[Rfam]
RNA sequence: GUAAGCAGACCCACCAAUGUCGCAUUUCAGGAUGAGGCAUUAAACCACCUAAAGGUGCUGUGGUAAAGAGCUAUGGUAUUGAGCGUUUAGGAAAAGGCAGUCCACGAGAUUGUCAGGU
Numbered sequence: 001g002u003a004a005g006c007a008g009a010c011c012c013a014c015c016a017a018u019g020u021c022g023c024a025u026u027u028c029a030g031g032a033u034g035a036g037g038c039a040u041u042a043a044a045c046c047a048c049c050u051a052a053a054g055g056u057g058c059u060g061u062g063g064u065a066a067a068g069a070g071c072u073a074u075g076g077u078a079u080u081g082a083g084c085g086u087u088u089a090g091g092a093a094a095a096g097g098c099a100g101u102c103c104a105c106g107a108g109a110u111u112g113u114c115a116g117g118u
Base pairs, nucleotide, nucleotide: 001014002013005011016041017040018039019038020037021036023034024033025032026031046117048091049090050089051088052087053086054080055079057077058076059075061073062072063071064070096114097113098112099111100110101109
Shown here is a 118-nucleotide RNA sequence from Labilibaculum filiforme, a member of the family "Group II catalytic intron D1-D4-2". Group II introns are found in rRNA, tRNA and mRNA of organelles in fungi, plants and protists, and also in mRNA in bacteria. The match comes from Rfam's covariance-model search (97 bits).